[Rfam]
RNA sequence: UUGAAGCUCCAUCUAUAAAUGGAUAAGACCCGGCCUUAGUGUAUACGAGUAUUUGAACGAAAUAAAAAAGGAGCAAUAUCCCCCUCUUGAUAGAACAAGGAGGGGAUUAUUGCUCCUUUUU
Numbered sequence: 001u002u003g004a005a006g007c008u009c010c011a012u013c014u015a016u017a018a019a020u021g022g023a024u025a026a027g028a029c030c031c032g033g034c035c036u037u038a039g040u041g042u043a044u045a046c047g048a049g050u051a052u053u054u055g056a057a058c059g060a061a062a063u064a065a066a067a068a069a070g071g072a073g074c075a076a077u078a079u080c081c082c083c084c085u086c087u088u089g090a091u092a093g094a095a096c097a098a099g100g101a102g103g104g105g106a107u108u109a110u111u112g113c114u115c116c117u118u119u120u121u
Base pairs, nucleotide, nucleotide: 008023009022010021011020012019067119068118069117070116071115072114073113074112075111076110077109078108081105082104083103085100086099087098088097
RNA: Plastid-psbA-1 3UTR RNA